[Rfam]
RNA sequence: AGACACCAGAGUAAUAAGCCGGGAAUUCAGGCUGUGCUUGCACAAGCCUGGAUUUUCGGCUUCAUUACCCGCCCCGGAAUGAGCAUAAAAGGGGAGCGUAAGCGCCCCGAUAUGCGAAUUGCGGGCAGGAUUGCGGGAGGGCAAAGCCCGGAGCAAUCCGCAUGGUGUCG
Numbered sequence: 001a002g003a004c005a006c007c008a009g010a011g012u013a014a015u016a017a018g019c020c021g022g023g024a025a026u027u028c029a030g031g032c033u034g035u036g037c038u039u040g041c042a043c044a045a046g047c048c049u050g051g052a053u054u055u056u057c058g059g060c061u062u063c064a065u066u067a068c069c070c071g072c073c074c075c076g077g078a079a080u081g082a083g084c085a086u087a088a089a090a091g092g093g094g095a096g097c098g099u100a101a102g103c104g105c106c107c108c109g110a111u112a113u114g115c116g117a118a119u120u121g122c123g124g125g126c127a128g129g130a131u132u133g134c135g136g137g138a139g140g141g142c143a144a145a146g147c148c149c150g151g152a153g154c155a156a157u158c159c160g161c162a163u164g165g166u167g168u169c170g
Base pairs, nucleotide, nucleotide: 002169003168004167005166006165007164011068012067013066016062017061018060019059020058021057022056023055024054025053026052027051028050029049030048031047033044034043035042036041073125074124075123076122078120079119080118083115084114085113086112091108092107093106094105096103097102128159129158130157131156132155133154134153139149140148141147142146
Dot-bracket structure: .((((((...(((..((((((((((((((((.((((....))))..))))))))))))))))...)))....((((.(((..((((....((((.((....)).))))...))))..))).))))..(((((((....((((...))))...)))))))....)))))).

A member of the RNA family "Clostridiales-1 RNA" from Clostridium sp. CAG:510, 170 nucleotides long. The organism belongs to Clostridium, within Bacteria. Rfam 15.1 lists 1,172 matches to the family in 137 species. The base pairs follow the family's consensus structure, which is taken from published work. The match comes from Rfam's covariance-model search (127 bits).